The family of this 74-nucleotide RNA from Triticum aestivum is "Small nucleolar RNA R66". Rfam classes the family as a C/D-box small nucleolar RNA. Rfam 15.1 lists 584 matches to the family in 219 species. The source organism's lineage runs through Eukaryota, Mesangiospermae, Pooideae, Triticeae and Triticum. Pairs were carried over by alignment from the consensus structure, which was predicted with PFOLD. snoR66 is a C/D box small nucleolar RNA, which acts as a methylation guide for 18S ribosomal RNA in plants. snoR66 has been alternatively named snoZ269 in rice.
[Rfam]
RNA sequence: CCCAGUGAUGGCACAUCUUUGAGACCUGAGAAUUUUCUUCUUUGAUGAAAAUCAUUAGCAUAAUCGCUUAGGGC
Numbered sequence: 001c002c003c004a005g006u007g008a009u010g011g012c013a014c015a016u017c018u019u020u021g022a023g024a025c026c027u028g029a030g031a032a033u034u035u036u037c038u039u040c041u042u043u044g045a046u047g048a049a050a051a052u053c054a055u056u057a058g059c060a061u062a063a064u065c066g067c068u069u070a071g072g073g074c
Stems, first nucleotide, its partner, number of pairs: 001073003029043001030040002